[Rfam]
RNA: U4 spliceosomal RNA
Organism: Glonium stellatum
RNA sequence: AUCCUAGUGCUAGGGCAUACGCGUGUCAGUGAGGAUUCGUCCGAGACCGUGUUUUUGCUAGUUGAAAACUACAACUAUUUGACUGCUCCAGUUGGUCUUCGGAUCGGCUGGGAAUUUUUGGAAAACAACCUGU
Numbered sequence: 001a002u003c004c005u006a007g008u009g010c011u012a013g014g015g016c017a018u019a020c021g022c023g024u025g026u027c028a029g030u031g032a033g034g035a036u037u038c039g040u041c042c043g044a045g046a047c048c049g050u051g052u053u054u055u056u057g058c059u060a061g062u063u064g065a066a067a068a069c070u071a072c073a074a075c076u077a078u079u080u081g082a083c084u085g086c087u088c089c090a091g092u093u094g095g096u097c098u099u100c101g102g103a104u105c106g107g108c109u110g111g112g113a114a115u116u117u118u119u120g121g122a123a124a125a126c127a128a129c130c131u132g133u
Base pairs, nucleotide, nucleotide: 019052020051021050022049023048025047026046027045033042034041035040087112088111089110090109091108092107093106094105095104096103097102128133